Annotation
The family of this 87-nucleotide RNA sequence from Halopseudomonas xinjiangensis is "t44 RNA". Rfam's curators write: This family consists of a number of bacterial RNA genes of between 135 and 170 bases in length. The t44 gene has been identified in several species of enteric bacteria but homologs have also been identified in Pseudomonas and Coxiella species. The t44 gene is found between the map and rpsB genes in all species in the full alignment apart from Shigella flexneri. On this family, see Tjaden et al., Nucleic Acids Res 2002: "Transcriptome analysis of Escherichia coli using high-density oligonucleotide probe arrays".

RNA sequence: CAGGCGAAACUUGAAAUCCGCACACGUAUCGACACAGUGCCCUGGGUGCCCUUCGGGGUUGGACACUGGGAUGCGUGGAGGCCCAAC
Number, nucleotide and partner (000 for none) at each position: 001c000002a000003g000004g000005c000006g000007a000008a000009a000010c000011u000012u000013g000014a000015a000016a000017u000018c000019c000020g000021c000022a000023c077024a076025c075026g074027u073028a072029u071030c070031g000032a000033c000034a000035c068036a067037g066038u065039g064040c000041c062042c061043u000044g000045g000046g000047u000048g059049c058050c057051c056052u000053u000054c000055g000056g051057g050058g049059u048060u000061g042062g041063a000064c039065a038066c037067u036068g035069g000070g030071a029072u028073g027074c026075g025076u024077g023078g000079a000080g000081g000082c000083c000084c000085a000086a000087c000